[Rfam]
Betacoronavirus 3'UTR: a 303-nucleotide sequence from Betacoronavirus gravedinis. NCBI's taxonomy places the organism under Viruses, Riboviria, Pisoniviricetes, Betacoronavirus gravedinis, Betacoronavirus 1. Rfam's curators put it in the seed alignment. The pairing is the family consensus, mapped onto this sequence.
RNA sequence: ACCUCAGAAAUAUAAGAGAAUGAACCUUAUGUCGGCAUCUGGUGGUAACCCCUCGCAGAAAAGUCGAGAUAAGGCACUCUCUAUCAGAAUGGAUGUCUUGCUGCUAUAAUAGAUAGAGAAGGUUAUAGCAGACUAUAGAUUAAUUAGUUGAAAGUUUUGUGUUGUAAUGUAUAGUGUUGGAGAAAGUGAAAGACUUGCGGAAGUAAUUGCCGACAAGUGCCCAAGGGAAGAGCCAGCAUGUUAAGUUACCACCCAGUAAUUAGUAAAUGAAUGAAGUUAAUUAUGGCCAAUUGGAAGAAUCAC
Numbered sequence: 001a002c003c004u005c006a007g008a009a010a011u012a013u014a015a016g017a018g019a020a021u022g023a024a025c026c027u028u029a030u031g032u033c034g035g036c037a038u039c040u041g042g043u044g045g046u047a048a049c050c051c052c053u054c055g056c057a058g059a060a061a062a063g064u065c066g067a068g069a070u071a072a073g074g075c076a077c078u079c080u081c082u083a084u085c086a087g088a089a090u091g092g093a094u095g096u097c098u099u100g101c102u103g104c105u106a107u108a109a110u111a112g113a114u115a116g117a118g119a120a121g122g123u124u125a126u127a128g129c130a131g132a133c134u135a136u137a138g139a140u141u142a143a144u145u146a147g148u149u150g151a152a153a154g155u156u157u158u159g160u161g162u163u164g165u166a167a168u169g170u171a172u173a174g175u176g177u178u179g180g181a182g183a184a185a186g187u188g189a190a191a192g193a194c195u196u197g198c199g200g201a202a203g204u205a206a207u208u209g210c211c212g213a214c215a216a217g218u219g220c221c222c223a224a225g226g227g228a229a230g231a232g233c234c235a236g237c238a239u240g241u242u243a244a245g246u247u248a249c250c251a252c253c254c255a256g257u258a259a260u261u262a263g264u265a266a267a268u269g270a271a272u273g274a275a276g277u278u279a280a281u282u283a284u285g286g287c288c289a290a291u292u293g294g295a296a297g298a299a300u301c302a303c
Stems, first nucleotide, its partner, number of pairs: 015082005021076002025074006032067004038059004044053002092301003096298004101131010138282008148266003153261002157256003174239007193218005198212003220227002287294002
Clan: Coronavirus 3' UTR.
Rfam describes the family as follows. The 3' UTR of betacoronaviruses is approximately 300-500 nucleotides long. The most 5' structure is the bulged stem-loop (BSL), starting downstream of the N gene stop codon and is essential for viral replication.